The record is a 115-nucleotide RNA sequence from Propithecus coquereli, which matches "Y RNA" in Rfam. Y RNAs are components of the Ro ribonucleoprotein particle (Ro RNP), in association with Ro60 and La proteins. Rfam classes the family as a non-coding RNA gene.
RNA sequence: GGCUGAUCCGAAGGUAGUGAGUUAUCUCACUUGAUUGUUCAGAGUCAGUUACAGCUUUAACUCCUGUUCUACUACUUUCCCCCCACUCCUCACUACUGCACGUGACUACUCUUAA
Numbered sequence: 001g002g003c004u005g006a007u008c009c010g011a012a013g014g015u016a017g018u019g020a021g022u023u024a025u026c027u028c029a030c031u032u033g034a035u036u037g038u039u040c041a042g043a044g045u046c047a048g049u050u051a052c053a054g055c056u057u058u059a060a061c062u063c064c065u066g067u068u069c070u071a072c073u074a075c076u077u078u079c080c081c082c083c084c085a086c087u088c089c090u091c092a093c094u095a096c097u098g099c100a101c102g103u104g105a106c107u108a109c110u111c112u113u114a115a
Stems, first nucleotide, its partner, number of pairs: 001111002004108002007105002010103001014099002016094006043077002047073002